[Rfam]
The record is a 100-nucleotide RNA from Otolemur garnettii, which matches "Small nucleolar RNA SNORD16" in Rfam.
RNA sequence: UGCAAUGAUGUCGUAAUUUGCGUCUUACUCUGUUCUCAGUGGCAGUUGCCUGCUGUCAGUAAGCUGAUACAGAAGGUUGACGAAAAUUCUUAAAAAAGAA
Numbered sequence: 001u002g003c004a005a006u007g008a009u010g011u012c013g014u015a016a017u018u019u020g021c022g023u024c025u026u027a028c029u030c031u032g033u034u035c036u037c038a039g040u041g042g043c044a045g046u047u048g049c050c051u052g053c054u055g056u057c058a059g060u061a062a063g064c065u066g067a068u069a070c071a072g073a074a075g076g077u078u079g080a081c082g083a084a085a086a087u088u089c090u091u092a093a094a095a096a097a098g099a100a
Stems, first nucleotide, its partner, number of pairs: 001100001003098001021082004030072004039064002041057005
Background:
It is annotated as a C/D-box small nucleolar RNA. Rfam 15.1 lists 1,321 matches to the family in 655 species.